[Rfam]
RNA sequence: CGGGAUCCGUCCCGUGAAGGAAUGUGGCGUUUUUCAGACGCUGAACCUGAGG
Number, nucleotide and partner (000 for none) at each position: 001c014002g013003g012004g011005a010006u000007c000008c000009g000010u005011c004012c003013c002014g001015u000016g000017a000018a048019g047020g046021a000022a000023u000024g000025u000026g042027g041028c040029g039030u038031u000032u000033u000034u000035c000036a000037g000038a030039c029040g028041c027042u026043g000044a000045a000046c020047c019048u018049g000050a000051g000052g000
Rfam assigns this 52-nucleotide RNA sequence to the family "eL15-Euryarchaeota ribosomal protein leader". It is one of the family's seed sequences. It is annotated as a cis-regulatory leader. The base pairs follow the family's consensus structure, which is taken from published work.